[Rfam]
RNA sequence: UUGGUUUAAAUCAUUGUGUAUCUACACUUUGAAAAUUGAACUCACACAAAGCGGUGAGACAAACAUUAAUUUUAUCCAA
Numbered sequence: 001u002u003g004g005u006u007u008a009a010a011u012c013a014u015u016g017u018g019u020a021u022c023u024a025c026a027c028u029u030u031g032a033a034a035a036u037u038g039a040a041c042u043c044a045c046a047c048a049a050a051g052c053g054g055u056g057a058g059a060c061a062a063a064c065a066u067u068a069a070u071u072u073u074a075u076c077c078a079a
Stems, first nucleotide, its partner, number of pairs: 001079004006074001008072004013067001015065003023056002025053001027051005
Shown here is a 79-nucleotide RNA sequence from Medicago truncatula, a member of the family "MIR5269 microRNA precursor family". The organism belongs to Medicago, within Eukaryota. The family has 2 seed sequences and 389 matches in Rfam 15.1. Pairs were carried over by alignment from the consensus structure, which was predicted with RNAalifold. Its family is annotated with RISC complex and miRNA-mediated post-transcriptional gene silencing in the Gene Ontology.